[Rfam]
RNA: PAGEV RNA
RNA sequence: CAAGGCUUGGAAUCAUGAUGCUGUGGGCCUUGCCAGCGUCAAGCGGGUGAUCAAGGGGAUCUCCACACACCCGCCGGUAUAGCCGCGUCACUACUAAAGUAGGCCGCCAAGAGAAGCCCGCAUUGCUCUUGGUGCUCCGAAUUUUAUAUGUAGUGCGUGCCGCACGCCGUGGAGGGGUGGGUCGUGUUGGACGGCCUAGAAGGUGCGGAACGCCG
Numbered sequence: 001c002a003a004g005g006c007u008u009g010g011a012a013u014c015a016u017g018a019u020g021c022u023g024u025g026g027g028c029c030u031u032g033c034c035a036g037c038g039u040c041a042a043g044c045g046g047g048u049g050a051u052c053a054a055g056g057g058g059a060u061c062u063c064c065a066c067a068c069a070c071c072c073g074c075c076g077g078u079a080u081a082g083c084c085g086c087g088u089c090a091c092u093a094c095u096a097a098a099g100u101a102g103g104c105c106g107c108c109a110a111g112a113g114a115a116g117c118c119c120g121c122a123u124u125g126c127u128c129u130u131g132g133u134g135c136u137c138c139g140a141a142u143u144u145u146a147u148a149u150g151u152a153g154u155g156c157g158u159g160c161c162g163c164a165c166g167c168c169g170u171g172g173a174g175g176g177g178u179g180g181g182u183c184g185u186g187u188u189g190g191a192c193g194g195c196c197u198a199g200a201a202g203g204u205g206c207g208g209a210a211c212g213c214c215g
Stems, first nucleotide, its partner, number of pairs: 001032007043074006062173005084159004089155006160208006178198006